[Rfam]
RNA sequence: UUAAGCUUUGAUUGUCCAAACGCAAUUCUUGUUUAUCAAUUAAUCUCCAAGAACUGUGUGUGGACAUCAAUGCUUGG
Numbered sequence: 001u002u003a004a005g006c007u008u009u010g011a012u013u014g015u016c017c018a019a020a021c022g023c024a025a026u027u028c029u030u031g032u033u034u035a036u037c038a039a040u041u042a043a044u045c046u047c048c049a050a051g052a053a054c055u056g057u058g059u060g061u062g063g064a065c066a067u068c069a070a071u072g073c074u075u076g077g
Stems, first nucleotide, its partner, number of pairs: 002076005009069004014065005021058004026053006
About this RNA:
Shown here is a 77-nucleotide sequence from Tetranychus urticae, a member of the family "mir-219 microRNA precursor family". The base pairs follow the family's consensus structure, which was predicted with RNAalifold.